[Rfam]
Nucleotides: 107
Stems, first nucleotide, its partner, number of pairs: 001107001003105002005102002058073001
Number, partner (000 for none) and nucleotide at each position: 001107a002000a003105g004104u005102c006101a007000u008000a009000u010000u011000g012000a013000g014000g015000g016000c017000a018000a019000c020000u021000u022000c023000u024000u025000a026000g027000c028000a029000a030000g031000c032000c033000c034000a035000u036000g037000u038000a039000u040000c041000u042000c043000u044000g045000c046000c047000a048000a049000g050000c051000u052000u053000c054000a055000u056000a057000u058073a059000a060000u061000g062000a063000c064000u065000c066000u067000c068000u069000c070000g071000c072000c073058u074000c075000u076000u077000g078000u079000u080000g081000g082000a083000a084000g085000u086000u087000a088000g089000c090000a091000a092000u093000c094000u095000u096000a097000u098000u099000u100000u101006u102005g103000a104004g105003c106000u107001u